[Rfam]
RNA: ZMP/ZTP riboswitch aptamer (pfl RNA motif)
Organism: Novosphingobium ginsenosidimutans
RNA sequence: CUUCGUUCACGUAACUGACGAGUCAGGCGGAGUACCGCCGGGGAGCGUGAAACGUAGCUGCCGCUCGUCUGGGCACCCCCG
Number, nucleotide and partner (000 for none) at each position: 001c000002u000003u054004c000005g000006u051007u050008c049009a048010c047011g046012u045013a000014a000015c042016u041017g069018a068019c067020g066021a065022g000023u000024c000025a000026g000027g038028c037029g036030g035031a000032g000033u000034a000035c030036c029037g028038c027039c000040g000041g016042g015043g000044a000045g012046c011047g010048u009049g008050a007051a006052a000053c000054g003055u000056a000057g000058c000059u075060g074061c073062c072063g000064c000065u021066c020067g019068u018069c017070u000071g000072g062073g061074c060075a059076c000077c000078c000079c000080c000081g000